[Rfam]
Source information: Shown here is an 80-nucleotide RNA sequence from Tupaia belangeri, a member of the family "mir-92 microRNA precursor family". For this family Rfam cites "miRNPs: a novel class of ribonucleoproteins containing numerous microRNAs" (Mourelatos et al., Genes Dev, 2002). From the family's description: This family represents the microRNA precursor mir-92. The family's consensus secondary structure was predicted with PFOLD. The family has 23 seed sequences and 1,347 matches in Rfam 15.1. A search with the family's covariance model found it, with a score of 89 bits.

RNA sequence: GUUCAUCUGUGGGUGGGGAUUUGUUGCAUUACUUGUGUUUUAGAAAAAGUAUUGCACUUGUCCCGGCCUGUGGAAGAAAG
Dot-bracket structure: ...(.(..((((((.(((((..((.(((.(((((............))))).)))))..))))).))))))..).)....
Numbered sequence: 001g002u003u004c005a006u007c008u009g010u011g012g013g014u015g016g017g018g019a020u021u022u023g024u025u026g027c028a029u030u031a032c033u034u035g036u037g038u039u040u041u042a043g044a045a046a047a048a049g050u051a052u053u054g055c056a057c058u059u060g061u062c063c064c065g066g067c068c069u070g071u072g073g074a075a076g077a078a079a080g
Stems, first nucleotide, its partner, number of pairs: 004076001006074001009071006016064005023057002026055003030051005